[Rfam]
RNA sequence: UCCCUGCUCAAGGGGGAGUAGUCGCUAACGGAAGCCAUUCCGCAGACGGUCGUCAACAUAGUUGGUGCAAAAUCACCAUGGUGGCCGUGACCUUUCGGGGUUUGACGAGACCUUUGACAGACGAGUGCCGAUACCGGGGACGGGCGGCAUGGCGUCUGCUCAUUGGUAACGAUAAU
Numbered sequence: 001u002c003c004c005u006g007c008u009c010a011a012g013g014g015g016g017a018g019u020a021g022u023c024g025c026u027a028a029c030g031g032a033a034g035c036c037a038u039u040c041c042g043c044a045g046a047c048g049g050u051c052g053u054c055a056a057c058a059u060a061g062u063u064g065g066u067g068c069a070a071a072a073u074c075a076c077c078a079u080g081g082u083g084g085c086c087g088u089g090a091c092c093u094u095u096c097g098g099g100g101u102u103u104g105a106c107g108a109g110a111c112c113u114u115u116g117a118c119a120g121a122c123g124a125g126u127g128c129c130g131a132u133a134c135c136g137g138g139g140a141c142g143g144g145c146g147g148c149a150u151g152g153c154g155u156c157u158g159c160u161c162a163u164u165g166g167u168a169a170c171g172a173u174a175a176u
Base pairs, nucleotide, nucleotide: 025042046088047087048086049085050084051083052082053081054080055079063078064077065076066075067074093175094174
Manganese Mn2+ riboswitch aptamer (yybP-ykoY): a 176-nucleotide sequence from Oceanimonas doudoroffii. NCBI's taxonomy places the organism under Bacteria, Pseudomonadati, Gammaproteobacteria, Aeromonadaceae, Oceanimonas. The family has 29 seed sequences and 1,126 matches in Rfam 15.1. The base pairs follow the family's consensus structure. A reference for the family is Barrick et al. (2004), "New RNA motifs suggest an expanded scope for riboswitches in bacterial genetic control", Proc Natl Acad Sci U S A. A search with the family's covariance model found it, with a score of 50 bits. Rfam links the family to the GO term manganese ion binding.